The record is a 129-nucleotide RNA sequence from Lactococcus hircilactis, which matches "Ribosomal protein L20 leader" in Rfam. From the family's description: This family is a putative r-protein leader autoregulatory structure found in B. subtilis and other low-GC Gram-positive bacteria. The family's consensus secondary structure was predicted with CMfinder. The match comes from Rfam's covariance-model search (76 bits). Rfam links the family to the GO term regulation of gene expression. A reference for the family is Zengel and Lindahl (1994), "Diverse mechanisms for regulating ribosomal protein synthesis in Escherichia coli", Prog Nucleic Acid Res Mol Biol. It is annotated as a cis-regulatory leader.
[Rfam]
RNA sequence: GUUGAAAAGCAGAAGCACCCGCUUCUCGCCUUAGUGGUUACAGCCCUGGGCAAACGAAUGGAAUUAUUCACAAAAAACGAAUGUUUUCAUGAGCGGGGCGAGAUUGUCGUUCCGCUUUUGUUUUUCUUA
Numbered sequence: 001g002u003u004g005a006a007a008a009g010c011a012g013a014a015g016c017a018c019c020c021g022c023u024u025c026u027c028g029c030c031u032u033a034g035u036g037g038u039u040a041c042a043g044c045c046c047u048g049g050g051c052a053a054a055c056g057a058a059u060g061g062a063a064u065u066a067u068u069c070a071c072a073a074a075a076a077a078c079g080a081a082u083g084u085u086u087u088c089a090u091g092a093g094c095g096g097g098g099c100g101a102g103a104u105u106g107u108c109g110u111u112c113c114g115c116u117u118u119u120g121u122u123u124u125u126c127u128u129a
Base pairs, nucleotide, nucleotide: 011026012025013024014023015022016021028051029050030049034046036044092116093115094114095113096112097111098110099109100108101107